[Rfam]
RNA sequence: GAGUCCCUGCGCUGUUGGUGUAAGCCUUUAUGUUUUGAGCCAACACCCGAUUGAAAGGGAGCCCGGAGUCUCCCCGGGGAGCAAACGCCUCAGGCCCGACGGGUCUCGUGGACUUGCAAGCCGGAUGAGCAGGGCACCCACCUGCUGGAGAGCAGGUUCAAAACAAAUGGAGUCACGGCAGCCGCGGGGCGACU
Numbered sequence: 001g002a003g004u005c006c007c008u009g010c011g012c013u014g015u016u017g018g019u020g021u022a023a024g025c026c027u028u029u030a031u032g033u034u035u036u037g038a039g040c041c042a043a044c045a046c047c048c049g050a051u052u053g054a055a056a057g058g059g060a061g062c063c064c065g066g067a068g069u070c071u072c073c074c075c076g077g078g079g080a081g082c083a084a085a086c087g088c089c090u091c092a093g094g095c096c097c098g099a100c101g102g103g104u105c106u107c108g109u110g111g112a113c114u115u116g117c118a119a120g121c122c123g124g125a126u127g128a129g130c131a132g133g134g135c136a137c138c139c140a141c142c143u144g145c146u147g148g149a150g151a152g153c154a155g156g157u158u159c160a161a162a163a164c165a166a167a168u169g170g171a172g173u174c175a176c177g178g179c180a181g182c183c184g185c186g187g188g189g190c191g192a193c194u
Base pairs, nucleotide, nucleotide: 005189006188007187008186009185010184011183012181013180014179015178018176019175031165032164033163034162036160037159038158039157040156041155057139058138059137061135062134063133064132066130071128072127074124075123076122077121083115084114088111089110091108
This 194-nucleotide sequence from Paenalicyclobacillus cellulosilyticus belongs to the Rfam family "6S / SsrS RNA".
About the family: E. coli 6S RNA was the first non coding RNA to be sequenced, but its function was unknown until recently.